The family of this 55-nucleotide RNA sequence from Oxynema aestuarii is "Nitrogen stress-induced RNA 1".
[Rfam]
RNA sequence: UGGUAGAUGCACCCUGAUUGACGUUCCCCGGCUCCUCUGAGUCGGGUUUUUUUUU
Numbered sequence: 001u002g003g004u005a006g007a008u009g010c011a012c013c014c015u016g017a018u019u020g021a022c023g024u025u026c027c028c029c030g031g032c033u034c035c036u037c038u039g040a041g042u043c044g045g046g047u048u049u050u051u052u053u054u055u
Base pairs, nucleotide, nucleotide: 002013003012004011027046028045029044030043031042032041033040034039
It scores 51 bits against the family's covariance model. It is annotated as a small RNA.